[Rfam]
RNA sequence: AAGCUCGAAGAUGAAGAGCUUGCAUCGUACAUCCUCGCCGGCCUCGACACGGAGUACAACCCGGCCGUCUCCGCCAUCGUCGGGCGGGUGGAACCCGUGUCCCUUGGUGAGCUUUUUACUCAGCUGAUUGCAUUUGAAC
Numbered sequence: 001a002a003g004c005u006c007g008a009a010g011a012u013g014a015a016g017a018g019c020u021u022g023c024a025u026c027g028u029a030c031a032u033c034c035u036c037g038c039c040g041g042c043c044u045c046g047a048c049a050c051g052g053a054g055u056a057c058a059a060c061c062c063g064g065c066c067g068u069c070u071c072c073g074c075c076a077u078c079g080u081c082g083g084g085c086g087g088g089u090g091g092a093a094c095c096c097g098u099g100u101c102c103c104u105u106g107g108u109g110a111g112c113u114u115u116u117u118a119c120u121c122a123g124c125u126g127a128u129u130g131c132a133u134u135u136g137a138a139c
Stems, first nucleotide, its partner, number of pairs: 005137004088108002091105002
RNA: Small nucleolar RNA Z247
Organism: Paspalum vaginatum